[Rfam]
RNA sequence: GCAUGAAAACAGCCGAAUCUCCAAAAGGAGUACGGGGGACUAUUUUUUAGGGGUGAAUCUCAGAUUUUGAGUAGGGUGACCUCAACCCAAACCCGUCAACUAACCUCGGAGGCACAAGGAGGUAAUAU
Numbered sequence: 001g002c003a004u005g006a007a008a009a010c011a012g013c014c015g016a017a018u019c020u021c022c023a024a025a026a027g028g029a030g031u032a033c034g035g036g037g038g039a040c041u042a043u044u045u046u047u048u049a050g051g052g053g054u055g056a057a058u059c060u061c062a063g064a065u066u067u068u069g070a071g072u073a074g075g076g077u078g079a080c081c082u083c084a085a086c087c088c089a090a091a092c093c094c095g096u097c098a099a100c101u102a103a104c105c106u107c108g109g110a111g112g113c114a115c116a117a118g119g120a121g122g123u124a125a126u127a128u
Base pairs, nucleotide, nucleotide: 012113013112014111019030020029033108034107035106036105037104040050041049051094052093053092059071060070061069062068074088075087076086077085

Background
A member of the RNA family "c-di-AMP riboswitch aptamer (ydaO/yuaA leader)" from Clostridium homopropionicum, 128 nucleotides long. The pairing is the family consensus, mapped onto this sequence. The organism belongs to Clostridium homopropionicum, within Bacteria.